This 66-nucleotide RNA sequence from Mastacembelus armatus belongs to the Rfam family "Selenocysteine insertion sequence 1". By type it is a cis-regulatory element.
RNA sequence: CUGGCGUUCAUGAAGGUUCGGCCCUAAAGCAGACUCUGUGGGGCCUAGCCAGAUGCCCCUCGCCAC
Numbered sequence: 001c002u003g004g005c006g007u008u009c010a011u012g013a014a015g016g017u018u019c020g021g022c023c024c025u026a027a028a029g030c031a032g033a034c035u036c037u038g039u040g041g042g043g044c045c046u047a048g049c050c051a052g053a054u055g056c057c058c059c060u061c062g063c064c065a066c
Stems, first nucleotide, its partner, number of pairs: 002065004015050004020045005030038003
About the family: The incorporation of selenocysteine into a protein sequence is directed by an in-frame UGA codon (usually a stop codon) within the coding region of the mRNA. Selenoprotein mRNAs contain a conserved secondary structure in the 3' UTR that is required for the distinction of UGA stop from UGA selenocysteine. The selenocysteine insertion sequence (SECIS) is around 60 nt in length and adopts a hairpin structure which is sufficiently well-defined and conserved to act as a computational screen for selenoprotein genes. Its family is annotated with selenocysteine incorporation in the Gene Ontology.